Background:
Betaproteobacteria toxic small RNA: a 64-nucleotide RNA sequence from Rubrivivax albus. From the family's description: Overexpression in amino aid rich medium attenuates growth, suggesting role in repressing amino acid intake and metabolism. The literature on the family includes a 2012 paper in Genome Res by Kimelman et al., "A vast collection of microbial genes that are toxic to bacteria". The family has 51 seed sequences and 951 matches in Rfam 15.1. The source organism's lineage runs through Bacteria, Pseudomonadati, Betaproteobacteria, Burkholderiales and Rubrivivax. A search with the family's covariance model found it, with a score of 52 bits.

RNA sequence: UGUCUCCUCCACCUCCCAAACGGUGGAUUCCGGCCCGGGGCCUCACGGCCCUGGGCCGUUUUUU
Numbered sequence: 001u002g003u004c005u006c007c008u009c010c011a012c013c014u015c016c017c018a019a020a021c022g023g024u025g026g027a028u029u030c031c032g033g034c035c036c037g038g039g040g041c042c043u044c045a046c047g048g049c050c051c052u053g054g055g056c057c058g059u060u061u062u063u064u
Stems, first nucleotide, its partner, number of pairs: 008027006032057008